[Rfam]
RNA sequence: GACGCGCAAGCGCCGAAGGCAGGAGCGGGGGACCCAAGGUAAGUGCCGGCCCCGCCCGUGAGAACGGGUCGUCGGCUUGGGGUGAAGCCGCGUGUGCUCCACACGCGGCCGGGCAGCUCACACGGCCCGAACCCGACAGCUCACCUCGUAGGCGUCGGUGAGGAAACGA
Numbered sequence: 001g002a003c004g005c006g007c008a009a010g011c012g013c014c015g016a017a018g019g020c021a022g023g024a025g026c027g028g029g030g031g032a033c034c035c036a037a038g039g040u041a042a043g044u045g046c047c048g049g050c051c052c053c054g055c056c057c058g059u060g061a062g063a064a065c066g067g068g069u070c071g072u073c074g075g076c077u078u079g080g081g082g083u084g085a086a087g088c089c090g091c092g093u094g095u096g097c098u099c100c101a102c103a104c105g106c107g108g109c110c111g112g113g114c115a116g117c118u119c120a121c122a123c124g125g126c127c128c129g130a131a132c133c134c135g136a137c138a139g140c141u142c143a144c145c146u147c148g149u150a151g152g153c154g155u156c157g158g159u160g161a162g163g164a165a166a167c168g169a
Base pairs, nucleotide, nucleotide: 011154012153013152014151025149026148027147028146029145030144035079036078037077038076080134081133082132088108089107090106091105092104093103111128112127113126114125
RNA: c-di-AMP riboswitch aptamer (ydaO/yuaA leader)